[Rfam]
RNA: Manganese Mn2+ riboswitch aptamer (yybP-ykoY)
RNA sequence: CAAUCGCGGCGUCAUUGGGGAGUAGCUAACCGCCGUCCUGGCGGGGCUGAUGUCAACAUACUUGACCCGCAGGUCAUGGCAUCAGCAGUUUCCGAACCCGGCAAGACCUUUGACCACAACGCCUCCGACUUGGCCGGGGAUGCGUGGUGGUCAAUCGUCAGUACCCGGCCAGGGAACC
Numbered sequence: 001c002a003a004u005c006g007c008g009g010c011g012u013c014a015u016u017g018g019g020g021a022g023u024a025g026c027u028a029a030c031c032g033c034c035g036u037c038c039u040g041g042c043g044g045g046g047c048u049g050a051u052g053u054c055a056a057c058a059u060a061c062u063u064g065a066c067c068c069g070c071a072g073g074u075c076a077u078g079g080c081a082u083c084a085g086c087a088g089u090u091u092c093c094g095a096a097c098c099c100g101g102c103a104a105g106a107c108c109u110u111u112g113a114c115c116a117c118a119a120c121g122c123c124u125c126c127g128a129c130u131u132g133g134c135c136g137g138g139g140a141u142g143c144g145u146g147g148u149g150g151u152c153a154a155u156c157g158u159c160a161g162u163a164c165c166c167g168g169c170c171a172g173g174g175a176a177c178c
Stems, first nucleotide, its partner, number of pairs: 030044003046086010063076005088178001090176004